The record is a 160-nucleotide RNA sequence from Streptomyces resistomycificus, which matches "c-di-AMP riboswitch aptamer (ydaO/yuaA leader)" in Rfam. A search with the family's covariance model found it, with a score of 64 bits. Lineage of the source: Bacteria > Bacillati > Actinomycetota > Actinomycetes > Streptomyces.
[Rfam]
RNA sequence: GCACACCACUCACCCGUACCCGGCAGGAGCGGGGGACCCACAGGUAGAACCGCCUGUUCCGGUCUCCGGAACGGCUUGGGGUUAAGUCGUGCUUCGGUACGGCCGGGCAUCUCCAGUCCGCACCCGACAGCUCACCUCGCAGGCGCCGGAGAGGAAUUCG
Numbered sequence: 001g002c003a004c005a006c007c008a009c010u011c012a013c014c015c016g017u018a019c020c021c022g023g024c025a026g027g028a029g030c031g032g033g034g035g036a037c038c039c040a041c042a043g044g045u046a047g048a049a050c051c052g053c054c055u056g057u058u059c060c061g062g063u064c065u066c067c068g069g070a071a072c073g074g075c076u077u078g079g080g081g082u083u084a085a086g087u088c089g090u091g092c093u094u095c096g097g098u099a100c101g102g103c104c105g106g107g108c109a110u111c112u113c114c115a116g117u118c119c120g121c122a123c124c125c126g127a128c129a130g131c132u133c134a135c136c137u138c139g140c141a142g143g144c145g146c147c148g149g150a151g152a153g154g155a156a157u158u159c160g
Stems, first nucleotide, its partner, number of pairs: 011145001013143002019027002029140006039078002079125003087102004105119004
Dot-bracket structure: ..........(.((....((.....)).((((((....((....................................))(((.....((((........))))..((((.......))))...))).........)))))).)).)...............